[Rfam]
Nucleotides: 267
Base pairs, nucleotide, nucleotide: 006123007122008121009120010119011118013116014115015114016113017112020046021045022044023043026040027039028038029037050057051056063091064090065089066088070084071083072082073081074080075079094107095106096105097104127265128264130262134255135254136253137252138251139250143231145229146228147227148226149225150224151223152222153221154219156188157187158186159185163180164179165178166177168175169174192216193215194214197212198211200210201209233243234242235241
Number, partner (000 for none) and nucleotide at each position: 001000g002000a003000g004000u005000u006123u007122g008121c009120c010119g011118u012000c013116g014115u015114g016113g017112c018000g019000a020046g021045g022044c023043u024000a025000a026040c027039c028038a029037c030000c031000g032000a033000u034000u035000c036000g037029g038028u039027g040026g041000g042000g043023a044022g045021u046020c047000a048000c049000a050057g051056c052000g053000a054000a055000a056051g057050c058000a059000a060000g061000a062000a063091g064090a065089c066088c067000g068000c069000a070084g071083c072082a073081c074080g075079c076000u077000u078000u079075g080074c081073g082072u083071g084070u085000g086000a087000g088066g089065g090064u091063c092000c093000u094107c095106g096105u097104g098000u099000u100000a101000a102000c103000g104097c105096g106095c107094g108000a109000g110000a111000a112017g113016u114015c115014a116013c117000c118011a119010c120009g121008g122007c123006a124000u125000u126000a127265u128264c129000c130262g131000a132000a133000a134255c135254c136253g137252g138251u139250c140000g141000a142000u143231c144000c145229u146228g147227g148226c149225c150224u151223g152222g153221c154219u155000a156188a157187g158186g159185u160000g161000a162000a163180g164179c165178g166177g167000c168175g169174c170000g171000a172000a173000a174169g175168c176000u177166c178165c179164g180163u181000g182000g183000a184000g185159g186158c187157c188156u189000g190000a191000a192216g193215c194214g195000u196000u197212g198211c199000u200210g201209c202000g203000a204000u205000a206000c207000a208000a209201g210200c211198g212197c213000u214194c215193g216192u217000g218000u219154a220000a221153g222152c223151u224150g225149g226148g227147u228146c229145a230000a231143g232000g233243g234242g235241u236000g237000a238000a239000a240000u241235g242234u243233c244000a245000a246000u247000c248000g249000a250139g251138a252137u253136c254135g255134g256000u257000a258000a259000u260000g261000g262130c263000u264128g265127g266000u267000u
Rfam assigns this 267-nucleotide part of an RNA from Candidatus Nanohalobium constans to the family "Archaeal large subunit ribosomal RNA".
A search with the family's covariance model found it, with a score of 2551 bits.
The literature on the family includes a 2002 paper in BMC Bioinformatics by Cannone et al., "The comparative RNA web (CRW) site: an online database of comparative sequence and structure information for ribosomal, intron, and other RNAs".